[Rfam]
RNA sequence: AGAUGAGAGAUACACCCCGGCCACAGGGGACUGUGGACGGUACCGGGACGGGGCCUCCCCAGCUUCGCCCUGGGCGUGCCUCGCGCACACAACCGGAGCUUCCGGCUUCGGGUCUCCUCACCGAUCGGA
Numbered sequence: 001a002g003a004u005g006a007g008a009g010a011u012a013c014a015c016c017c018c019g020g021c022c023a024c025a026g027g028g029g030a031c032u033g034u035g036g037a038c039g040g041u042a043c044c045g046g047g048a049c050g051g052g053g054c055c056u057c058c059c060c061a062g063c064u065u066c067g068c069c070c071u072g073g074g075c076g077u078g079c080c081u082c083g084c085g086c087a088c089a090c091a092a093c094c095g096g097a098g099c100u101u102c103c104g105g106c107u108u109c110g111g112g113u114c115u116c117c118u119c120a121c122c123g124a125u126c127g128g129a
Base pairs, nucleotide, nucleotide: 004120005119006118007117009116010115017040018039019038021036022035023034024033025032026031043073044072045071046070047069049067050066051065052064053063054062076088077087078086079085093111094110095109096108097107098106099105121128122127